[Rfam]
RNA sequence: GCCAGUGAUGAUUUUGUCUGCAAAAUGGAUGUCCUGUGGACUCAAGUCCCUGUUUCAGGGAGAACCUACUUGAGGAAGCAGCGAAUAACAUGACAUCAACUAGAUAUAUCUGAGGC
Numbered sequence: 001g002c003c004a005g006u007g008a009u010g011a012u013u014u015u016g017u018c019u020g021c022a023a024a025a026u027g028g029a030u031g032u033c034c035u036g037u038g039g040a041c042u043c044a045a046g047u048c049c050c051u052g053u054u055u056c057a058g059g060g061a062g063a064a065c066c067u068a069c070u071u072g073a074g075g076a077a078g079c080a081g082c083g084a085a086u087a088a089c090a091u092g093a094c095a096u097c098a099a100c101u102a103g104a105u106a107u108a109u110c111u112g113a114g115g116c
Stems, first nucleotide, its partner, number of pairs: 001116003048060005
Dot-bracket structure: (((............................................(((((...))))).....................................................)))
The family of this 116-nucleotide sequence from Setaria italica is "Small nucleolar RNA Z278".
Its family is annotated with RNA processing and nucleolus in the Gene Ontology.
Rfam describes the family as follows. snoZ278 is a C/D box small nucleolar RNA. Its methylation guide targets have not been reported.
Rfam 15.1 lists 1,130 matches to the family in 214 species.
On this family, see Chen et al., Nucleic Acids Res 2003: "The high diversity of snoRNAs in plants: identification and comparative study of 120 snoRNA genes from Oryza sativa".
Lineage of the source: Eukaryota > Streptophyta > Mesangiospermae > Poales > Setaria.